Shown here is a 67-nucleotide RNA from Oreotrochilus melanogaster, a member of the family "mir-34 microRNA precursor family". The family's consensus secondary structure was predicted with RNAalifold. Rfam describes the family as follows. Human mir-34a was discovered computationally and later experimentally verified. The mature sequence is excised from the 5' arm of the hairpin. The source organism's lineage runs through Eukaryota, Sauria, Dinosauria, Trochilidae and Oreotrochilus.

RNA sequence: AGUUCCUUGGCAGUGUAGUUAGCUGAUUGCCAUCAGCACCAAUCACUAGCCACACAGCCAGGUAAAG
Numbered sequence: 001a002g003u004u005c006c007u008u009g010g011c012a013g014u015g016u017a018g019u020u021a022g023c024u025g026a027u028u029g030c031c032a033u034c035a036g037c038a039c040c041a042a043u044c045a046c047u048a049g050c051c052a053c054a055c056a057g058c059c060a061g062g063u064a065a066a067g
Stems, first nucleotide, its partner, number of pairs: 003065002006062001009059002013055004018050005024045006